RNA: tRNA
Organism: Bacillus subtilis
RNA sequence: GCCGGUGUAGCUCAAUUGGUAGAGCAACUGACUUGUAAUCAGUAGGUUGGGGGUUCAAGUCCUCUUGCCGGCA
Numbered sequence: 001g002c003c004g005g006u007g008u009a010g011c012u013c014a015a016u017u018g019g020u021a022g023a024g025c026a027a028c029u030g031a032c033u034u035g036u037a038a039u040c041a042g043u044a045g046g047u048u049g050g051g052g053g054u055u056c057a058a059g060u061c062c063u064c065u066u067g068c069c070g071g072c073a
Stems, first nucleotide, its partner, number of pairs: 001072007010025004027043005049065005